[Rfam]
RNA sequence: AAGCUUUCUUGUCCUGUUGGCAGCAGUUCCUUUGAAGCUUCCUGCUUUCAGUGAAAGCGAUAUAAAGUAAUAUACCAAUAUGCAAAUCUCGGUGUCUUGGGUUGCGUGAUUGAAAAAAUUAU
Numbered sequence: 001a002a003g004c005u006u007u008c009u010u011g012u013c014c015u016g017u018u019g020g021c022a023g024c025a026g027u028u029c030c031u032u033u034g035a036a037g038c039u040u041c042c043u044g045c046u047u048u049c050a051g052u053g054a055a056a057g058c059g060a061u062a063u064a065a066a067g068u069a070a071u072a073u074a075c076c077a078a079u080a081u082g083c084a085a086a087u088c089u090c091g092g093u094g095u096c097u098u099g100g101g102u103u104g105c106g107u108g109a110u111u112g113a114a115a116a117a118a119u120u121a122u
Stems, first nucleotide, its partner, number of pairs: 003058004008051002016045002019042002022039003067122004079108007087100002091096001
A member of the RNA family "Small nucleolar RNA SNORA14" from Apteryx owenii, 122 nucleotides long. The family has 18 seed sequences and 848 matches in Rfam 15.1. Its family is annotated with nucleolus and RNA processing in the Gene Ontology. The organism belongs to Apteryx, within Eukaryota. The match comes from Rfam's covariance-model search (36 bits). It is annotated as an H/ACA-box small nucleolar RNA. Rfam's curators write: ACA14 is a member of the H/ACA class of snoRNA that guide the sites of modification of uridines to pseudouridines.